Overview:
Ascomycota telomerase RNA: a 211-nucleotide part of an RNA from Fusarium tricinctum. By type it is a non-coding RNA gene. On this family, see Qi et al., Nucleic Acids Res 2013: "The common ancestral core of vertebrate and fungal telomerase RNAs". The pairing is the family consensus, mapped onto this sequence.
RNA sequence: UCCCCCACAGUCUUCCGGCCCUCGUUUCUCGAAAGAGAUGUCUAUUGCAGACCGCCCGUCUUUUUUUUGGUUACCCGACCAUAUGCCGCUCUCGAGCCUGUAACAGGACCUCGUGAAUGCCGCAGCUGGAUUAUGGCGGGUAGGGCGUCCUGUAUAGGAUGUACCAGACGGAUGGGCGUACGAGGUUCGGAACUUAACCCUAAGAAGAUAU
Numbered sequence: 001u002c003c004c005c006c007a008c009a010g011u012c013u014u015c016c017g018g019c020c021c022u023c024g025u026u027u028c029u030c031g032a033a034a035g036a037g038a039u040g041u042c043u044a045u046u047g048c049a050g051a052c053c054g055c056c057c058g059u060c061u062u063u064u065u066u067u068u069g070g071u072u073a074c075c076c077g078a079c080c081a082u083a084u085g086c087c088g089c090u091c092u093c094g095a096g097c098c099u100g101u102a103a104c105a106g107g108a109c110c111u112c113g114u115g116a117a118u119g120c121c122g123c124a125g126c127u128g129g130a131u132u133a134u135g136g137c138g139g140g141u142a143g144g145g146c147g148u149c150c151u152g153u154a155u156a157g158g159a160u161g162u163a164c165c166a167g168a169c170g171g172a173u174g175g176g177c178g179u180a181c182g183a184g185g186u187u188c189g190g191a192a193c194u195u196a197a198c199c200c201u202a203a204g205a206a207g208a209u210a211u
Stems, first nucleotide, its partner, number of pairs: 009194003015190004